[Rfam]
Shown here is an 87-nucleotide sequence from Albula goreensis, a member of the family "Vault RNA". The literature on the family includes a 2009 paper in Mol Biol Evol by Stadler et al., "Evolution of Vault RNAs". It scores 62 bits against the family's covariance model. About the family: This family of RNAs are found as part of the enigmatic vault ribonucleoprotein complex. The complex consists of a major vault protein (MVP), two minor vault proteins (VPARP and TEP1), and several small untranslated RNA molecules. It has been suggested that the vault complex is involved in drug resistance.
RNA sequence: GCGCCGGUUUAGCUCAGUGGUUACUUCGUGUUGAAGCAAUGCUACCGUCUUCGGAGGGUCGAACCACGGGUGCAGUCUGGCGUUUUA
Numbered sequence: 001g002c003g004c005c006g007g008u009u010u011a012g013c014u015c016a017g018u019g020g021u022u023a024c025u026u027c028g029u030g031u032u033g034a035a036g037c038a039a040u041g042c043u044a045c046c047g048u049c050u051u052c053g054g055a056g057g058g059u060c061g062a063a064c065c066a067c068g069g070g071u072g073c074a075g076u077c078u079g080g081c082g083u084u085u086u087a
Stems, first nucleotide, its partner, number of pairs: 002082006012071004017067004025063004